[Rfam]
RNA sequence: UUGACUGCGAGGUCUGGUCUGGAGGAAGCCGGACGCAAAGCUGCGAACUGAUGAACAAGAACUUCAUAUAAGGCAUAGGCUAAAGUUGAGUUGGCACAAUGUGACGAAACCAUGUGUUCUAACGGUCACCGCAAAUGAUGCAUCAGUGCAGUGAAAGUUCAUGCU
Numbered sequence: 001u002u003g004a005c006u007g008c009g010a011g012g013u014c015u016g017g018u019c020u021g022g023a024g025g026a027a028g029c030c031g032g033a034c035g036c037a038a039a040g041c042u043g044c045g046a047a048c049u050g051a052u053g054a055a056c057a058a059g060a061a062c063u064u065c066a067u068a069u070a071a072g073g074c075a076u077a078g079g080c081u082a083a084a085g086u087u088g089a090g091u092u093g094g095c096a097c098a099a100u101g102u103g104a105c106g107a108a109a110c111c112a113u114g115u116g117u118u119c120u121a122a123c124g125g126u127c128a129c130c131g132c133a134a135a136u137g138a139u140g141c142a143u144c145a146g147u148g149c150a151g152u153g154a155a156a157g158u159u160c161a162u163g164c165u
Base pairs, nucleotide, nucleotide: 001016003014004013005012006011028165030163031162035158036157040152041151042150043149044148045147046143049142050141062140064138065137066136067135073132074131078127079126080125081124085111087109090105091104092103093102
The family of this 165-nucleotide sequence from Paraglaciecola sp. T6c is "Group II catalytic intron D1-D4-3". The pairing is the family consensus, mapped onto this sequence. Rfam links the family to the GO term Group II intron splicing. The organism belongs to Paraglaciecola, within Bacteria. Rfam's curators write: Group II introns are found in rRNA, tRNA and mRNA of organelles in fungi, plants and protists, and also in mRNA in bacteria.